[Rfam]
RNA sequence: GGGGGUUAACUCAGGCUAGGGAACUCGGCAAAUUAGCCCCAUAACUUCGGAAUAAGGGGUGCCUACUGCAGUAGUAAAACUGCUGUAGUAGGUCGCAGUGACCAGGGGGAUCUGACUUUUUAAUAAAAAAAUAGGUCCCCGCAAGCCCGUAAGGGUGUGUACGGGGGCUAAAUCCUGGCCACUGGCGGUCGGUUAAACUCGGGUCCAACCGAGCGAAGCCCCGCUGAAGGCCGGGGGUAACUCUGACCCUCUCAAGGUAGCCAAAUGCCUUGCCGGGCAAGUUCCGGCGUGCAUGAAUGGAUCAACGUGAUCCCCACUGUCCCAGCCUGGGGCCCCAUGAACGCCCAGAGUGGGUUCACAGACCCGCAU
Numbered sequence: 001g002g003g004g005g006u007u008a009a010c011u012c013a014g015g016c017u018a019g020g021g022a023a024c025u026c027g028g029c030a031a032a033u034u035a036g037c038c039c040c041a042u043a044a045c046u047u048c049g050g051a052a053u054a055a056g057g058g059g060u061g062c063c064u065a066c067u068g069c070a071g072u073a074g075u076a077a078a079a080c081u082g083c084u085g086u087a088g089u090a091g092g093u094c095g096c097a098g099u100g101a102c103c104a105g106g107g108g109g110a111u112c113u114g115a116c117u118u119u120u121u122a123a124u125a126a127a128a129a130a131a132u133a134g135g136u137c138c139c140c141g142c143a144a145g146c147c148c149g150u151a152a153g154g155g156u157g158u159g160u161a162c163g164g165g166g167g168c169u170a171a172a173u174c175c176u177g178g179c180c181a182c183u184g185g186c187g188g189u190c191g192g193u194u195a196a197a198c199u200c201g202g203g204u205c206c207a208a209c210c211g212a213g214c215g216a217a218g219c220c221c222c223g224c225u226g227a228a229g230g231c232c233g234g235g236g237g238u239a240a241c242u243c244u245g246a247c248c249c250u251c252u253c254a255a256g257g258u259a260g261c262c263a264a265a266u267g268c269c270u271u272g273c274c275g276g277g278c279a280a281g282u283u284c285c286g287g288c289g290u291g292c293a294u295g296a297a298u299g300g301a302u303c304a305a306c307g308u309g310a311u312c313c314c315c316a317c318u319g320u321c322c323c324a325g326c327c328u329g330g331g332g333c334c335c336c337a338u339g340a341a342c343g344c345c346c347a348g349a350g351u352g353g354g355u356u357c358a359c360a361g362a363c364c365c366g367c368a369u
Stems, first nucleotide, its partner, number of pairs: 001336004010331008019322003036060005045050001061093015094098001106315007113307002117131003134169008142159001145156004172302004177232003182229002184225005191220003198213005233251006252256001272288006350367005
Dot-bracket structure: ((((.....((((((((.(((..............(((((....(....).....)))))(((((((((((((((...)))))))))))))))(...).......(((((((((..(((.........)))..(((((((((..((((....))))..)..))))))))..((((.(((..(((((((..(((....(((((......)))))....))))))))..)))))((((((.......))))))(...)...............((((((.....))))))..........))))...)).)))))))....))).)))))))).)))).............(((((........)))))..
RNA: Archaeal large subunit ribosomal RNA, nucleotides 1800 to 2168